[Rfam]
RNA: tRNA
Organism: Anaerorhabdus furcosa
RNA sequence: GCCGACUUAGCUCAAUUGGCAGAGCAAUUGAUUUGUAAUCAAUAGGUUGUAGGUUCGAUUCCUAUAGUCGGCA
Numbered sequence: 001g002c003c004g005a006c007u008u009a010g011c012u013c014a015a016u017u018g019g020c021a022g023a024g025c026a027a028u029u030g031a032u033u034u035g036u037a038a039u040c041a042a043u044a045g046g047u048u049g050u051a052g053g054u055u056c057g058a059u060u061c062c063u064a065u066a067g068u069c070g071g072c073a
Stems, first nucleotide, its partner, number of pairs: 001072007010025004027043005049065005